[Rfam]
RNA sequence: CCAAUCUCGGACUGAGCUUCUGGGGGACACGCGUGGUGAACAUUCAGGCUGAUUGUGACACCACGUAGGGUAGGUAUCGACAAGUCCUUUUGUCGAUAGACGGGAUACUCUUGCUGCGGAGCGGCAUGUGAAUGGGAAACCCAACA
Numbered sequence: 001c002c003a004a005u006c007u008c009g010g011a012c013u014g015a016g017c018u019u020c021u022g023g024g025g026g027a028c029a030c031g032c033g034u035g036g037u038g039a040a041c042a043u044u045c046a047g048g049c050u051g052a053u054u055g056u057g058a059c060a061c062c063a064c065g066u067a068g069g070g071u072a073g074g075u076a077u078c079g080a081c082a083a084g085u086c087c088u089u090u091u092g093u094c095g096a097u098a099g100a101c102g103g104g105a106u107a108c109u110c111u112u113g114c115u116g117c118g119g120a121g122c123g124g125c126a127u128g129u130g131a132a133u134g135g136g137a138a139a140c141c142c143a144a145c146a
Stems, first nucleotide, its partner, number of pairs: 006024006031066008040056003075098010112126006
This 146-nucleotide RNA from Vibrio cholerae belongs to the Rfam family "DABA-DC-AT RNA". The sequence is in the family's curated seed alignment. The organism belongs to Vibrio cholerae O1, within Bacteria.